Record summary
A member of the RNA family "mir-128 microRNA precursor family" from Callorhinchus milii, 82 nucleotides long. For this family Rfam cites "The developmental miRNA profiles of zebrafish as determined by small RNA cloning" (Chen et al., Genes Dev, 2005). Pairs were carried over by alignment from the consensus structure, which was predicted with RNAalifold.
[Rfam]
RNA sequence: GGGGUCCUGGAGAGGGGACCGUUACACUGUAGGAGAGGGAUUGUAGGUCUCACAGUGAACCGGUCUCUGUUCCAGAACCUCU
Numbered sequence: 001g002g003g004g005u006c007c008u009g010g011a012g013a014g015g016g017g018a019c020c021g022u023u024a025c026a027c028u029g030u031a032g033g034a035g036a037g038g039g040a041u042u043g044u045a046g047g048u049c050u051c052a053c054a055g056u057g058a059a060c061c062g063g064u065c066u067c068u069g070u071u072c073c074a075g076a077a078c079c080u081c082u
Stems, first nucleotide, its partner, number of pairs: 007075004015067007025057006033051003